[Rfam]
RNA sequence: GUAGCUAUGGCGACAUGGUGCCAAAGACCAUCUUGGGUCAACUGAUCGGCGGCACGUGCGCGCUUUCCGGUGUACUGGUGAUAGCCCUUCCCGUCCCAUUCAUUGUCUCAAAC
Numbered sequence: 001g002u003a004g005c006u007a008u009g010g011c012g013a014c015a016u017g018g019u020g021c022c023a024a025a026g027a028c029c030a031u032c033u034u035g036g037g038u039c040a041a042c043u044g045a046u047c048g049g050c051g052g053c054a055c056g057u058g059c060g061c062g063c064u065u066u067c068c069g070g071u072g073u074a075c076u077g078g079u080g081a082u083a084g085c086c087c088u089u090c091c092c093g094u095c096c097c098a099u100u101c102a103u104u105g106u107c108u109c110a111a112a113c
Stems, first nucleotide, its partner, number of pairs: 001113002004109001007106004012101002017096002020094002036076003049061002